[Rfam]
Rfam assigns this 87-nucleotide RNA sequence from Jatrophihabitans endophyticus to the family "ZMP/ZTP riboswitch aptamer (pfl RNA motif)".
RNA sequence: GCCGCGAGCCGUGACUGGCGCUUCGCAGGUGGAUCCGACCACCGGGGAGCGGCUCGCGCACCACCGCCGCGCGCCUGGGCUCACCGA
Numbered sequence: 001g002c003c004g005c006g007a008g009c010c011g012u013g014a015c016u017g018g019c020g021c022u023u024c025g026c027a028g029g030u031g032g033a034u035c036c037g038a039c040c041a042c043c044g045g046g047g048a049g050c051g052g053c054u055c056g057c058g059c060a061c062c063a064c065c066g067c068c069g070c071g072c073g074c075c076u077g078g079g080c081u082c083a084c085c086g087a
Stems, first nucleotide, its partner, number of pairs: 003058010015046002017075005029042004066080003

Taxonomically the source falls in Jatrophihabitans (Bacteria, Bacillati, Actinomycetota, Actinomycetes).